[Rfam]
A member of the RNA family "Bacterial large subunit ribosomal RNA" from Sediminibacterium sp. Gen4, 337 nucleotides of a longer RNA. It scores 2698 bits against the family's covariance model. The base pairs follow the family's consensus structure, which is taken from published work. The source organism's lineage runs through Bacteria, Bacteroidota, Chitinophagia, Chitinophagales and Sediminibacterium.
RNA sequence: CGGGUGAGCCGUGGAGAAGGAACUAGGCAAAUUGACGCUGUAACUUCGGGAUAAAGCGUACCAGCCGCAAGGCUGGUCACAGUAAAAUGGUUCAACCAACUGUUUAACAAAAACACAGGGCCCUGCAAAAACGUAAGUUGACGUAUAGAGCCUGAAACCUGCCCGGUGCUGGAAGGUUAAGGAAGGGUGUUCGGCGCAAGCCAAAGCUCCUGACUGAAGCCCCAGUAAACGGCGGCCGUAACUAUAACGGUCCUAAGGUAGCGAAAUUCCUUGUCGGGUAAGUUCCGACCUGCACGAAUGGUCUAAUGAGUUGAACACUGUCUCCUCCACGAGCCCG
Numbered sequence: 001c002g003g004g005u006g007a008g009c010c011g012u013g014g015a016g017a018a019g020g021a022a023c024u025a026g027g028c029a030a031a032u033u034g035a036c037g038c039u040g041u042a043a044c045u046u047c048g049g050g051a052u053a054a055a056g057c058g059u060a061c062c063a064g065c066c067g068c069a070a071g072g073c074u075g076g077u078c079a080c081a082g083u084a085a086a087a088u089g090g091u092u093c094a095a096c097c098a099a100c101u102g103u104u105u106a107a108c109a110a111a112a113a114c115a116c117a118g119g120g121c122c123c124u125g126c127a128a129a130a131a132c133g134u135a136a137g138u139u140g141a142c143g144u145a146u147a148g149a150g151c152c153u154g155a156a157a158c159c160u161g162c163c164c165g166g167u168g169c170u171g172g173a174a175g176g177u178u179a180a181g182g183a184a185g186g187g188u189g190u191u192c193g194g195c196g197c198a199a200g201c202c203a204a205a206g207c208u209c210c211u212g213a214c215u216g217a218a219g220c221c222c223c224a225g226u227a228a229a230c231g232g233c234g235g236c237c238g239u240a241a242c243u244a245u246a247a248c249g250g251u252c253c254u255a256a257g258g259u260a261g262c263g264a265a266a267u268u269c270c271u272u273g274u275c276g277g278g279u280a281a282g283u284u285c286c287g288a289c290c291u292g293c294a295c296g297a298a299u300g301g302u303c304u305a306a307u308g309a310g311u312u313g314a315a316c317a318c319u320g321u322c323u324c325c326u327c328c329a330c331g332a333g334c335c336c337g
Stems, first nucleotide, its partner, number of pairs: 001337004010331007018323003035059005044049001060077007078082001090316007097308002101115003118153004123148003126143001130139003157302003161233003166230002168226005175221003181215002185211003189207002193202002234252006253257001263290001273289006